[Rfam]
RNA sequence: UUGUCCAUCGGGGCCACGGAUACCUGCUUAGAUUUUU
Dot-bracket structure: ..((((....))))..(((....)))...........
Shown here is a 37-nucleotide RNA sequence from Galemys pyrenaicus, a member of the family "XIST RNA A repeat". The family's consensus secondary structure was predicted with CMfinder.